Background: Rfam assigns this 517-nucleotide RNA from Actinomadura harenae to the family "Saccharopolyspora sRNA 350". Rfam links the family to the GO term regulation of secondary metabolite biosynthetic process. A search with the family's covariance model found it, with a score of 158 bits.

RNA sequence: GUGACGGCCCGGACCGAGUACGCCCAGUCGUGCGCCUCGCCGUGCAGGGCGUCGGCGCCGAAGAACGAGCCGUCCGCGAGGGUGCCGAGCACGGCCUCCCCGCCGUACUCGCCCUCGCCGACCUUCUCCAGCUUGCCGUGCGCGACGAGCACCACCGUGUCGACGGGCUGCCCGGCGGCCACGAUCACGUCGCCCGGCUCGUACUCGCGCUGCUCGAACCGGCCCGCGAGGUCGCCGAGGACGUCCUCGUCCUCGUAGCCGCGCAGCACCGGCAGCUCGCCGAGCUCGAGGGGGAUCACCUGGACGUUCGCGCCGGUCUGGAUGAACUCGACCCGGCCGUCCCCGACGGUGUAGGCCAGCCGCCGGUUGACCCGGUACGCACCGCCCCCGCACUGCACCCACGGGAGCAGCUUGAGCAGCCAGCGCGAGGAGAUGCCCUGCAUCUGGGGCACGGACUUGGUCGUCGUCGCGAGGUUCCGCGCCGCCGCCGUCCCCAGACUCCGCUGCUGUUGGUCGG
Numbered sequence: 001g002u003g004a005c006g007g008c009c010c011g012g013a014c015c016g017a018g019u020a021c022g023c024c025c026a027g028u029c030g031u032g033c034g035c036c037u038c039g040c041c042g043u044g045c046a047g048g049g050c051g052u053c054g055g056c057g058c059c060g061a062a063g064a065a066c067g068a069g070c071c072g073u074c075c076g077c078g079a080g081g082g083u084g085c086c087g088a089g090c091a092c093g094g095c096c097u098c099c100c101c102g103c104c105g106u107a108c109u110c111g112c113c114c115u116c117g118c119c120g121a122c123c124u125u126c127u128c129c130a131g132c133u134u135g136c137c138g139u140g141c142g143c144g145a146c147g148a149g150c151a152c153c154a155c156c157g158u159g160u161c162g163a164c165g166g167g168c169u170g171c172c173c174g175g176c177g178g179c180c181a182c183g184a185u186c187a188c189g190u191c192g193c194c195c196g197g198c199u200c201g202u203a204c205u206c207g208c209g210c211u212g213c214u215c216g217a218a219c220c221g222g223c224c225c226g227c228g229a230g231g232u233c234g235c236c237g238a239g240g241a242c243g244u245c246c247u248c249g250u251c252c253u254c255g256u257a258g259c260c261g262c263g264c265a266g267c268a269c270c271g272g273c274a275g276c277u278c279g280c281c282g283a284g285c286u287c288g289a290g291g292g293g294g295a296u297c298a299c300c301u302g303g304a305c306g307u308u309c310g311c312g313c314c315g316g317u318c319u320g321g322a323u324g325a326a327c328u329c330g331a332c333c334c335g336g337c338c339g340u341c342c343c344c345g346a347c348g349g350u351g352u353a354g355g356c357c358a359g360c361c362g363c364c365g366g367u368u369g370a371c372c373c374g375g376u377a378c379g380c381a382c383c384g385c386c387c388c389c390g391c392a393c394u395g396c397a398c399c400c401a402c403g404g405g406a407g408c409a410g411c412u413u414g415a416g417c418a419g420c421c422a423g424c425g426c427g428a429g430g431a432g433a434u435g436c437c438c439u440g441c442a443u444c445u446g447g448g449g450c451a452c453g454g455a456c457u458u459g460g461u462c463g464u465c466g467u468c469g470c471g472a473g474g475u476u477c478c479g480c481g482c483c484g485c486c487g488c489c490g491u492c493c494c495c496a497g498a499c500u501c502c503g504c505u506g507c508u509g510u511u512g513g514u515c516g517g
Stems, first nucleotide, its partner, number of pairs: 006399002010395003015390002018337002022333001028331003032327001037325002045321001047319004054314005060308002063242001066239001069236001071234002074120001076118002084112001086111004091106005126231002129228001136221001138219002140215001142213003147208001149206001158201002162198001164196005169187002173183002243305004249299002253295002259291002262288002265286003270279002338351004362386001364384003371379001400440002403437002408435002411432003416426002419424001446485001448483002452479004456474003460470002486516002489512002495506003